[Rfam]
A member of the RNA family "Small nucleolar RNA SNORD10" from Elysia chlorotica, 142 nucleotides long. It scores 44 bits against the family's covariance model. By type it is a C/D-box small nucleolar RNA. The literature on the family includes a 2001 paper in EMBO J by Huttenhofer et al., "RNomics: an experimental approach that identifies 201 candidates for novel, small, non-messenger RNAs in mouse". NCBI's taxonomy places the organism under Eukaryota, Mollusca, Sacoglossa, Plakobranchidae, Elysia.
RNA sequence: GCAACAUGAUGAUAACCUCAUGCGUGUCAACUGACUCUCAUUGCAUAUGCCCUAGAGCAAUAAGUGGAGGCGUUUUGCUGACACUUUGGGACUCUAGGGCGGUUGCUUGAGCUGCUUGAUCUUUACUUUGAGGCUGAUGUGC
Numbered sequence: 001g002c003a004a005c006a007u008g009a010u011g012a013u014a015a016c017c018u019c020a021u022g023c024g025u026g027u028c029a030a031c032u033g034a035c036u037c038u039c040a041u042u043g044c045a046u047a048u049g050c051c052c053u054a055g056a057g058c059a060a061u062a063a064g065u066g067g068a069g070g071c072g073u074u075u076u077g078c079u080g081a082c083a084c085u086u087u088g089g090g091a092c093u094c095u096a097g098g099g100c101g102g103u104u105g106c107u108u109g110a111g112c113u114g115c116u117u118g119a120u121c122u123u124u125a126c127u128u129u130g131a132g133g134c135u136g137a138u139g140u141g142c
Stems, first nucleotide, its partner, number of pairs: 001142003048101009